RNA sequence: CCGAAAUUCCGUUAUGGUCCAAUUCUGAACGUCUUAGUGUAUAUGAAGCGUUGAAGUUGAAGGAGCAAUACCGACCCUCUUGAUAGAAUAAGAGGGUCGGUAUUGCUCCUUC
Numbered sequence: 001c002c003g004a005a006a007u008u009c010c011g012u013u014a015u016g017g018u019c020c021a022a023u024u025c026u027g028a029a030c031g032u033c034u035u036a037g038u039g040u041a042u043a044u045g046a047a048g049c050g051u052u053g054a055a056g057u058u059g060a061a062g063g064a065g066c067a068a069u070a071c072c073g074a075c076c077c078u079c080u081u082g083a084u085a086g087a088a089u090a091a092g093a094g095g096g097u098c099g100g101u102a103u104u105g106c107u108c109c110u111u112c
Stems, first nucleotide, its partner, number of pairs: 009017003059112013073098003077094005
RNA: Plastid-psbA-1 3UTR RNA